[Rfam]
RNA sequence: UUAUGUAGAAGAGGAGCACUGCCCAGGCAGAUGAUUUGUGGAACCGCAAUUCCAAUACCAAUCAUUCAGGGGGAGUAGUGCCGAGGUAAGUCAAAAUUGCAGGGUUUGGCUUGUCGGUUGACUUGGGUUGAGUCCCAUCAACUGUCAUCAGCACCGUCUGAUGAAGAGCUUCUGAGGGU
Numbered sequence: 001u002u003a004u005g006u007a008g009a010a011g012a013g014g015a016g017c018a019c020u021g022c023c024c025a026g027g028c029a030g031a032u033g034a035u036u037u038g039u040g041g042a043a044c045c046g047c048a049a050u051u052c053c054a055a056u057a058c059c060a061a062u063c064a065u066u067c068a069g070g071g072g073g074a075g076u077a078g079u080g081c082c083g084a085g086g087u088a089a090g091u092c093a094a095a096a097u098u099g100c101a102g103g104g105u106u107u108g109g110c111u112u113g114u115c116g117g118u119u120g121a122c123u124u125g126g127g128u129u130g131a132g133u134c135c136c137a138u139c140a141a142c143u144g145u146c147a148u149c150a151g152c153a154c155c156g157u158c159u160g161a162u163g164a165a166g167a168g169c170u171u172c173u174g175a176g177g178g179u
Base pairs, nucleotide, nucleotide: 006174007173008172009171010170011169016081017080018079019078020077021076022075024073030066031065032064033063034062035061036060085115086114087113088112089111090110091109092108093107094106095105116143117142118141119140120139121138145164146163147162148161149160150159151158
This 179-nucleotide RNA sequence from Vibrio parahaemolyticus belongs to the Rfam family "Lysine riboswitch aptamer".
The source organism's lineage runs through Bacteria, Pseudomonadati, Pseudomonadota, Vibrionaceae and Vibrio parahaemolyticus.